Background: c-di-AMP riboswitch aptamer (ydaO/yuaA leader): a 147-nucleotide RNA from Lentibacillus populi. The pairing is the family consensus, mapped onto this sequence. Taxonomically the source falls in Lentibacillus (Bacteria, Bacillota, Bacilli, Bacillaceae).

Nucleotides: 147
Stems, first nucleotide, its partner, number of pairs: 011132004018030003031127006041066001067112003075086004089106004
Number, partner (000 for none) and nucleotide at each position: 001000u002000u003000u004000u005000c006000a007000u008000a009000a010000c011132c012131g013130c014129u015000u016000a017000a018030u019029u020028u021000c022000u023000a024000a025000a026000u027000g028020a029019a030018a031127a032126c033125g034124g035123g036122g037000g038000a039000a040000c041066c042000a043000u044000u045000u046000u047000u048000g049000u050000g051000a052000u053000g054000u055000g056000a057000u058000c059000a060000u061000c062000a063000c064000u065000a066041g067112g068111g069110g070000u071000g072000a073000a074000u075086c076085c077084a078083u079000a080000u081000u082000a083078a084077u085076g086075g087000u088000a089106g090105g091104g092103u093000g094000a095000c096000u097000c098000u099000u100000a101000a102000c103092a104091c105090c106089c107000g108000a109000a110069u111068c112067c113000g114000a115000c116000a117000g118000c119000u120000a121000a122036c123035c124034u125033c126032g127031u128000a129014a130013g131012c132011g133000u134000c135000c136000g137000u138000a139000a140000g141000a142000g143000g144000a145000g146000a147000u